[Rfam]
RNA sequence: GGAGCAAUGCAAGCGCCAGAGCUUGAUCUUGCGCGGGGGAGAAGGGAAGACUGGAAGCUGCCAUUAAGGGCAGAACGGCCUGAACGGAUCACGGCAGAUGUAAGCUGACGAGGUGGAGGUGUUCGAAAUGUUCGGCGGGGACCUCCCGGUGAUGCACCAGAGCCGUAAAUGGAAGCGGAAAAUGCGAGGGCGACCUCUCACACAACGCUCCUGUGGGUGCCAAU
Numbered sequence: 001g002g003a004g005c006a007a008u009g010c011a012a013g014c015g016c017c018a019g020a021g022c023u024u025g026a027u028c029u030u031g032c033g034c035g036g037g038g039g040a041g042a043a044g045g046g047a048a049g050a051c052u053g054g055a056a057g058c059u060g061c062c063a064u065u066a067a068g069g070g071c072a073g074a075a076c077g078g079c080c081u082g083a084a085c086g087g088a089u090c091a092c093g094g095c096a097g098a099u100g101u102a103a104g105c106u107g108a109c110g111a112g113g114u115g116g117a118g119g120u121g122u123u124c125g126a127a128a129u130g131u132u133c134g135g136c137g138g139g140g141a142c143c144u145c146c147c148g149g150u151g152a153u154g155c156a157c158c159a160g161a162g163c164c165g166u167a168a169a170u171g172g173a174a175g176c177g178g179a180a181a182a183u184g185c186g187a188g189g190g191c192g193a194c195c196u197c198u199c200a201c202a203c204a205a206c207g208c209u210c211c212u213g214u215g216g217g218u219g220c221c222a223a224u
Base pairs, nucleotide, nucleotide: 020106021105022104023103024102025101029097030096031095032094115146116145117144118143119142123135124134125133126132147165148164149163150162151158169214170213171212172211174209175208183200184199186197187196188195189194
A member of the RNA family "glmS glucosamine-6-phosphate activated ribozyme aptamer" from Paenibacillus sp. FSL R5-0912, 224 nucleotides long.
The source organism's lineage runs through Bacteria, Bacilli, Caryophanales, Paenibacillaceae and Paenibacillus.
The match comes from Rfam's covariance-model search (59 bits).
A reference for the family is Jansen et al. (2006), "Backbone and nucleobase contacts to glucosamine-6-phosphate in the glmS ribozyme", Nat Struct Mol Biol.